[Rfam]
RNA sequence: AGGAUUCCUACAGGAGCGACCUGAAAUCACAUGUGGGCUGCUCGGCAACCUGUGUUCUUCAGGUCGCCCCUGCCGGGCUCUC
Numbered sequence: 001a002g003g004a005u006u007c008c009u010a011c012a013g014g015a016g017c018g019a020c021c022u023g024a025a026a027u028c029a030c031a032u033g034u035g036g037g038c039u040g041c042u043c044g045g046c047a048a049c050c051u052g053u054g055u056u057c058u059u060c061a062g063g064u065c066g067c068c069c070c071u072g073c074c075g076g077g078c079u080c081u082c
Stems, first nucleotide, its partner, number of pairs: 007076002011072004016067004023060003026056001028054004
This 82-nucleotide RNA from Populus alba belongs to the Rfam family "MIR398 microRNA precursor family". For this family Rfam cites "Expression of Arabidopsis MIRNA genes" (Xie et al., Plant Physiol, 2005). Taxonomically the source falls in Populus (Eukaryota, Mesangiospermae, Pentapetalae, Salicaceae). Rfam 15.1 lists 627 matches to the family in 211 species. The base pairs follow the family's consensus structure, which was predicted with WAR. A search with the family's covariance model found it, with a score of 64 bits.